[Rfam]
RNA sequence: UAUGGCAGAUGAUGAAUUGAUUACUUGUGCUUAAAUCACAGAAUAAUAGUGUUGACAAACAAUCUCCGCUUAUUAUCUGAUGCCAUG
Dot-bracket structure: ..(((((.........................................................................)))))..